MIR394 microRNA precursor family: a 131-nucleotide RNA sequence from Solanum lycopersicum. The source organism's lineage runs through Eukaryota, Streptophyta, Euphyllophyta, Solaneae and Solanum subgen. Lycopersicon. The match comes from Rfam's covariance-model search (75 bits). Rfam links the family to the GO terms miRNA-mediated post-transcriptional gene silencing and RISC complex. For this family Rfam cites "Computational identification of plant microRNAs and their targets, including a stress-induced miRNA" (Jones-Rhoades and Bartel, Mol Cell, 2004).
RNA sequence: CUUACAUAGUUCUUUGGCAUUCUGUCCACCUCCUUUACCUUCAUAAUCUUCUAUUUUUUUAGAAAAAUAAUUUUUGUUAUUAUUUUUUUUAAAAAAUGGAGGUGGGCAUACUGUCAACAGAUUUGUGUUAG
Numbered sequence: 001c002u003u004a005c006a007u008a009g010u011u012c013u014u015u016g017g018c019a020u021u022c023u024g025u026c027c028a029c030c031u032c033c034u035u036u037a038c039c040u041u042c043a044u045a046a047u048c049u050u051c052u053a054u055u056u057u058u059u060u061a062g063a064a065a066a067a068u069a070a071u072u073u074u075u076g077u078u079a080u081u082a083u084u085u086u087u088u089u090u091a092a093a094a095a096a097u098g099g100a101g102g103u104g105g106g107c108a109u110a111c112u113g114u115c116a117a118c119a120g121a122u123u124u125g126u127g128u129u130a131g
Stems, first nucleotide, its partner, number of pairs: 011121001014117006023108011